[Rfam]
RNA sequence: UACCGAACUCUGCCGCUCGCUGAGGUUCCCAGUAAGAACACUGUGGCAGGGGCGGGGGAACCACUUUUGGGUUCCAUCUGAACUCUUGGGGUUAAGUCAUCCGAUACCCGUAUCGGACGACCGGGUGACUCCCACCCGAAUCCGACAGCUCACCUCGCAGGUAUCGGGAGAGGCUAC
Numbered sequence: 001u002a003c004c005g006a007a008c009u010c011u012g013c014c015g016c017u018c019g020c021u022g023a024g025g026u027u028c029c030c031a032g033u034a035a036g037a038a039c040a041c042u043g044u045g046g047c048a049g050g051g052g053c054g055g056g057g058g059a060a061c062c063a064c065u066u067u068u069g070g071g072u073u074c075c076a077u078c079u080g081a082a083c084u085c086u087u088g089g090g091g092u093u094a095a096g097u098c099a100u101c102c103g104a105u106a107c108c109c110g111u112a113u114c115g116g117a118c119g120a121c122c123g124g125g126u127g128a129c130u131c132c133c134a135c136c137c138g139a140a141u142c143c144g145a146c147a148g149c150u151c152a153c154c155u156c157g158c159a160g161g162u163a164u165c166g167g168g169a170g171a172g173g174c175u176a177c
Stems, first nucleotide, its partner, number of pairs: 001163004008051009052158006062088002089143003097120002100117007123137004